Description: The record is a 135-nucleotide RNA sequence from Cnephaeus nilssonii, which matches "Small nucleolar RNA SNORA5" in Rfam. Lineage of the source: Eukaryota > Vertebrata > Sarcopterygii > Boreoeutheria > Cnephaeus.

RNA sequence: UAUAGUUAAUAAUACUGUAUUAUAUGCCCCACUUAUGACAAGCACUGGCCCAGAAGGCUGCCACAGAAACACUGUGGCCCAUGGGCCCUGAUCCCCUCUGCUGGGCCUCAGGGGUAAAUUUGGCUACAGACAUCA
Numbered sequence: 001u002a003u004a005g006u007u008a009a010u011a012a013u014a015c016u017g018u019a020u021u022a023u024a025u026g027c028c029c030c031a032c033u034u035a036u037g038a039c040a041a042g043c044a045c046u047g048g049c050c051c052a053g054a055a056g057g058c059u060g061c062c063a064c065a066g067a068a069a070c071a072c073u074g075u076g077g078c079c080c081a082u083g084g085g086c087c088c089u090g091a092u093c094c095c096c097u098c099u100g101c102u103g104g105g106c107c108u109c110a111g112g113g114g115u116a117a118a119u120u121u122g123g124c125u126a127c128a129g130a131c132a133u134c135a
Stems, first nucleotide, its partner, number of pairs: 003060003018047002021044001023042001025040002028037001074127006086113005
Record summary:
Rfam's curators write: ACA5 is a member of the H/ACA class of snoRNA that guide the sites of modification of uridines to pseudouridines. Rfam links the family to the GO terms RNA processing and nucleolus. A search with the family's covariance model found it, with a score of 88 bits.